[Rfam]
A member of the RNA family "GcvB RNA", 195 nucleotides long. The family's RNA type in Rfam is non-coding RNA gene. Its family is annotated with mRNA binding and regulation of gene expression in the Gene Ontology. Pairs were carried over by alignment from the consensus structure, which is taken from published work. Rfam describes the family as follows. The gcvB gene encodes a small untranslated RNA involved in expression of the dipeptide and oligopeptide transport systems in Escherichia coli. Included several unknown homologues in alignment (Bateman A pers obs). It base-pairs with SorC. This interaction triggers the degradation of GcvB by RNase E, alleviating the GcvB-mediated mRNA repression of other amino acid-related transport and metabolic genes. The literature on the family includes a 2000 paper in Mol Microbiol by Urbanowski et al., "The gcvB gene encodes a small untranslated RNA involved in expression of the dipeptide and oligopeptide transport systems in Escherichia coli".
RNA sequence: ACUUCCAGUAGCCGGAACGAAAAGUUGAAUGGUAUGAGGAUGCCGUGAUGCUUUUGGCUUGUGGUUGUGAUGUUGUGUUUGUAUUGUCUGGCAAUCCAGACCAGUAGCUUAAGCGCUACAAAUUUUCACUUCCUGUACAUUACCCUGUCUGUCCAAAGUGAUUUUUUAGCACCGCAUUUUGCGGUGCUUUUUUUU
Number, nucleotide and partner (000 for none) at each position: 001a000002c000003u000004u000005c000006c000007a000008g000009u000010a059011g058012c057013c056014g000015g000016a055017a054018c000019g000020a000021a000022a053023a052024g051025u050026u000027g000028a000029a046030u045031g044032g043033u042034a041035u040036g000037a000038g000039g000040a035041u034042g033043c032044c031045g030046u029047g000048a000049u000050g025051c024052u023053u022054u017055u016056g013057g012058c011059u010060u000061g000062u000063g000064g000065u000066u000067g000068u000069g000070a000071u000072g000073u000074u000075g000076u000077g000078u000079u000080u000081g000082u000083a000084u000085u000086g101087u100088c099089u098090g097091g096092c000093a000094a000095u000096c091097c090098a089099g088100a087101c086102c000103a000104g119105u118106a117107g116108c115109u000110u000111a000112a000113g000114c000115g108116c107117u106118a105119c104120a000121a000122a000123u000124u000125u000126u000127c000128a000129c000130u000131u000132c000133c000134u000135g000136u000137a166138c000139a000140u000141u000142a000143c000144c000145c000146u000147g000148u000149c000150u000151g000152u000153c000154c000155a000156a000157a000158g000159u000160g000161a000162u000163u000164u000165u000166u137167u000168a188169g187170c186171a185172c184173c183174g182175c181176a000177u000178u000179u000180u000181g175182c174183g173184g172185u171186g170187c169188u168189u000190u000191u000192u000193u000194u000195u000